[Rfam]
RNA sequence: GGGAAAUGAUGAGUGGUCAAUGCUUGCAUUUAAAUAUGCAAGAUGGGGUGUUCUGCCUAAAGCCUGUUACGACAAUUAGGCACCUCCUCUUUUAAACCAUCUGAUCCC
Number, nucleotide and partner (000 for none) at each position: 001g108002g107003g106004a105005a000006a000007u000008g000009a000010u000011g000012a000013g000014u099015g098016g097017u096018c000019a000020a000021u000022g000023c042024u041025u040026g039027c038028a000029u000030u000031u000032a000033a000034a000035u000036a000037u000038g027039c026040a025041a024042g023043a000044u000045g086046g085047g084048g000049u082050g081051u080052u079053c000054u000055g000056c000057c000058u000059a000060a000061a000062g000063c000064c000065u000066g076067u075068u000069a000070c000071g000072a000073c000074a000075a067076u066077u000078a000079g052080g051081c050082a049083c000084c047085u046086c045087c000088u000089c000090u000091u000092u000093u000094a000095a000096a017097c016098c015099a014100u000101c000102u000103g000104a000105u004106c003107c002108c001